This 109-nucleotide RNA sequence from Paenibacillus phyllosphaerae belongs to the Rfam family "TPP riboswitch aptamer (THI element)". The match comes from Rfam's covariance-model search (87 bits). About the family: Vitamin B(1) in its active form thiamin pyrophosphate (TPP) is an essential coenzyme that is synthesised by coupling of pyrimidine and thiazole moieties in bacteria. The source organism's lineage runs through Bacteria, Bacillati, Bacilli, Caryophanales and Paenibacillus.

RNA sequence: GAAAUCCACUAGGGGCGCCCGCAUGGGCUGAGAUAAGGCAAAUCGUUGCCUUGGUCCCUUUGAACCUGAUCUGGGUUAUGCCAGCGUAGGAAAGUGGGAAUGUUCGUGC
Numbered sequence: 001g002a003a004a005u006c007c008a009c010u011a012g013g014g015g016c017g018c019c020c021g022c023a024u025g026g027g028c029u030g031a032g033a034u035a036a037g038g039c040a041a042a043u044c045g046u047u048g049c050c051u052u053g054g055u056c057c058c059u060u061u062g063a064a065c066c067u068g069a070u071c072u073g074g075g076u077u078a079u080g081c082c083a084g085c086g087u088a089g090g091a092a093a094g095u096g097g098g099a100a101u102g103u104u105c106g107u108g109c
Base pairs, nucleotide, nucleotide: 006097007096008095009094010093011059012058013057014056016053017028018027019026020025035052036051037050038049039048040047041046065090066089067088068087071084072083073082074081